Overview: Rfam assigns this 118-nucleotide RNA from Microlunatus parietis to the family "mraW RNA". It is annotated as a cis-regulatory element. Pairs were carried over by alignment from the consensus structure, which is taken from published work. The source organism's lineage runs through Bacteria, Actinomycetes, Propionibacteriales, Propionibacteriaceae and Microlunatus.
[Rfam]
RNA sequence: GCAGGCUCGUGCCCCCAGGCUUCAACCCGCGAUCCGGCUCCCUGGCGCACCUUCCCCGGCGCCAGGUAGCACUUCCCGCGGAUCUCGGGUUGAAACCUGAAGGCACGAGCCACGCAUU
Numbered sequence: 001g002c003a004g005g006c007u008c009g010u011g012c013c014c015c016c017a018g019g020c021u022u023c024a025a026c027c028c029g030c031g032a033u034c035c036g037g038c039u040c041c042c043u044g045g046c047g048c049a050c051c052u053u054c055c056c057c058g059g060c061g062c063c064a065g066g067u068a069g070c071a072c073u074u075c076c077c078g079c080g081g082a083u084c085u086c087g088g089g090u091u092g093a094a095a096c097c098u099g100a101a102g103g104c105a106c107g108a109g110c111c112a113c114g115c116a117u118u
Stems, first nucleotide, its partner, number of pairs: 010105004016099001018097002021094009031084004036072001037070003041066008